[Rfam]
RNA sequence: UAGCUAUAUUAAGUAGUGGUGCCGCAGGUAUUUACUGCCAGAUUACCUGCAUGUCACUACUUAAUGCUA
Numbered sequence: 001u002a003g004c005u006a007u008a009u010u011a012a013g014u015a016g017u018g019g020u021g022c023c024g025c026a027g028g029u030a031u032u033u034a035c036u037g038c039c040a041g042a043u044u045a046c047c048u049g050c051a052u053g054u055c056a057c058u059a060c061u062u063a064a065u066g067c068u069a
Stems, first nucleotide, its partner, number of pairs: 001069004010063010024050007
The family of this 69-nucleotide RNA from Octopus sinensis is "mir-252 microRNA precursor family". The family is grouped with related families in Rfam's "mir-252 microRNA precursor family". Rfam 15.1 lists 422 matches to the family in 306 species. NCBI's taxonomy places the organism under Eukaryota, Eumetazoa, Mollusca, Octopoda, Octopus. The base pairs follow the family's consensus structure, which was predicted with RNAalifold. On this family, see Li et al., BMC Genomics 2009: "Direct sequencing and expression analysis of a large number of miRNAs in Aedes aegypti and a multi-species survey of novel mosquito miRNAs". The match comes from Rfam's covariance-model search (49 bits).